This 277-nucleotide sequence belongs to the Rfam family "RAGATH-8 RNA". The sequence is in the family's curated seed alignment. For this family Rfam cites "New classes of self-cleaving ribozymes revealed by comparative genomics analysis" (Weinberg et al., Nat Chem Biol, 2015).
RNA sequence: GAUAACGAAGUAAGCAGGAAAGUCCAGGUGAAGUGAUAGGGCGGUUCGUGAGUAACGUGGUAGUUAUGCUGAUAAACGUAUCAGACAGAGCGAAUGCAGAAUAAGCAUGACCUGGCAAAACAGUUGAAGAAAGCAGGAACAUCAGGGCAAGAAAGCACAGUGUUCAUUACUACCGGCAGAAAAAUGAGCAGUCUGAACCAAUCAGAACUUUUCCCCUCAACCAAGAAGUUGUUAAGCGGAAGAAUCAACGAGCGAGAGGACACAGCACUUCGUUACC
Numbered sequence: 001g002a003u004a005a006c007g008a009a010g011u012a013a014g015c016a017g018g019a020a021a022g023u024c025c026a027g028g029u030g031a032a033g034u035g036a037u038a039g040g041g042c043g044g045u046u047c048g049u050g051a052g053u054a055a056c057g058u059g060g061u062a063g064u065u066a067u068g069c070u071g072a073u074a075a076a077c078g079u080a081u082c083a084g085a086c087a088g089a090g091c092g093a094a095u096g097c098a099g100a101a102u103a104a105g106c107a108u109g110a111c112c113u114g115g116c117a118a119a120a121c122a123g124u125u126g127a128a129g130a131a132a133g134c135a136g137g138a139a140c141a142u143c144a145g146g147g148c149a150a151g152a153a154a155g156c157a158c159a160g161u162g163u164u165c166a167u168u169a170c171u172a173c174c175g176g177c178a179g180a181a182a183a184a185u186g187a188g189c190a191g192u193c194u195g196a197a198c199c200a201a202u203c204a205g206a207a208c209u210u211u212u213c214c215c216c217u218c219a220a221c222c223a224a225g226a227a228g229u230u231g232u233u234a235a236g237c238g239g240a241a242g243a244a245u246c247a248a249c250g251a252g253c254g255a256g257a258g259g260a261c262a263c264a265g266c267a268c269u270u271c272g273u274u275a276c277c
Stems, first nucleotide, its partner, number of pairs: 001277001003275008024115006044095006053066004069084004123249005133237002138233004143228001144217004152211004161190007192206005